mir-139 microRNA precursor family: a 68-nucleotide RNA from Mesitornis unicolor. The base pairs follow the family's consensus structure, which was predicted with RNAalifold. Rfam links the family to the GO terms RISC complex and miRNA-mediated post-transcriptional gene silencing. Rfam 15.1 lists 598 matches to the family in 559 species.

RNA sequence: CUGUAUUCUACAGUGCACGUGUCUCCAGUGUGAGUAAGCGACUGGAGACACGGCCCUGUCGGGAUAAC
Numbered sequence: 001c002u003g004u005a006u007u008c009u010a011c012a013g014u015g016c017a018c019g020u021g022u023c024u025c026c027a028g029u030g031u032g033a034g035u036a037a038g039c040g041a042c043u044g045g046a047g048a049c050a051c052g053g054c055c056c057u058g059u060c061g062g063g064a065u066a067a068c
Base pairs, nucleotide, nucleotide: 006064007063008062009061010059011058012057013056015054016053018052019051020050021049022048023047024046025045026044027043028042029041